[Rfam]
RNA sequence: ACCCUCCUGUUUCCCUUUCCCAUCGGAUCUUGACACUGAUCUUGGUGGUCCUUAACGAGGAAGAGUACACUGAAGCUGGCCUCACAGCGAUGCAGCUUGGUGUAGAGCAUCAGGCCAGAUUCGAACAUGC
Numbered sequence: 001a002c003c004c005u006c007c008u009g010u011u012u013c014c015c016u017u018u019c020c021c022a023u024c025g026g027a028u029c030u031u032g033a034c035a036c037u038g039a040u041c042u043u044g045g046u047g048g049u050c051c052u053u054a055a056c057g058a059g060g061a062a063g064a065g066u067a068c069a070c071u072g073a074a075g076c077u078g079g080c081c082u083c084a085c086a087g088c089g090a091u092g093c094a095g096c097u098u099g100g101u102g103u104a105g106a107g108c109a110u111c112a113g114g115c116c117a118g119a120u121u122c123g124a125a126c127a128u129g130c
Stems, first nucleotide, its partner, number of pairs: 003060004020048005026041004076118007091109003
RNA: Small nucleolar RNA SNORA61